[Rfam]
Rfam assigns this 80-nucleotide RNA from Paenibacillus sp. YN15 to the family "ZMP/ZTP riboswitch aptamer (pfl RNA motif)". Pairs were carried over by alignment from the consensus structure, which is taken from published work.
RNA sequence: AAACUGCGGUGUGACUGGCGACGAGUGGAACAACCACAAUGGAGCACUGCGGAUACCGGCCGGUCGCCUGGGCAAGAGCA
Numbered sequence: 001a002a003a004c005u006g007c008g009g010u011g012u013g014a015c016u017g018g019c020g021a022c023g024a025g026u027g028g029a030a031c032a033a034c035c036a037c038a039a040u041g042g043a044g045c046a047c048u049g050c051g052g053a054u055a056c057c058g059g060c061c062g063g064u065c066g067c068c069u070g071g072g073c074a075a076g077a078g079c080a
Base pairs, nucleotide, nucleotide: 004052005051006050007049008048009047010046011045012044015041017068018067019066020065021064025037026036027035028034059073060072061071